[Rfam]
RNA sequence: CACCAUUAAUUCAGAAAAUGUUCUGAACACAGAAGUCAGCAGAGCCAUAAUAGCUGUUACUGUUACAGCAGUAAAGGGA
Numbered sequence: 001c002a003c004c005a006u007u008a009a010u011u012c013a014g015a016a017a018a019u020g021u022u023c024u025g026a027a028c029a030c031a032g033a034a035g036u037c038a039g040c041a042g043a044g045c046c047a048u049a050a051u052a053g054c055u056g057u058u059a060c061u062g063u064u065a066c067a068g069c070a071g072u073a074a075a076g077g078g079a
Stems, first nucleotide, its partner, number of pairs: 001025002005022001007020002010017002036043002045078002053072006
Overview: Rfam assigns this 79-nucleotide RNA sequence to the family "Group II catalytic intron D1-D4-1". Rfam describes the family as follows. Group II introns are found in rRNA, tRNA and mRNA of organelles in fungi, plants and protists, and also in mRNA in bacteria. Gene Ontology term of the family: Group II intron splicing.